[Rfam]
Shown here is a 105-nucleotide RNA from Roseicitreum antarcticum, a member of the family "TPP riboswitch aptamer (THI element)". Rfam links the family to the GO term thiamine pyrophosphate binding. Rfam describes the family as follows. Vitamin B(1) in its active form thiamin pyrophosphate (TPP) is an essential coenzyme that is synthesised by coupling of pyrimidine and thiazole moieties in bacteria.
RNA sequence: CCCAUCACCUCGGGGUGCUUUGGCAACAAGGUUGAGAUGCGCUUGCGCGAACCCGUUGAACCUGAACCGGUUAAAUCCGGCGGAGGGAAGGUAGAGGGCGCGUGC
Numbered sequence: 001c002c003c004a005u006c007a008c009c010u011c012g013g014g015g016u017g018c019u020u021u022g023g024c025a026a027c028a029a030g031g032u033u034g035a036g037a038u039g040c041g042c043u044u045g046c047g048c049g050a051a052c053c054c055g056u057u058g059a060a061c062c063u064g065a066a067c068c069g070g071u072u073a074a075a076u077c078c079g080g081c082g083g084a085g086g087g088a089a090g091g092u093a094g095a096g097g098g099c100g101c102g103u104g105c
Stems, first nucleotide, its partner, number of pairs: 007092004011055004016049001017032005039048003061086003067080004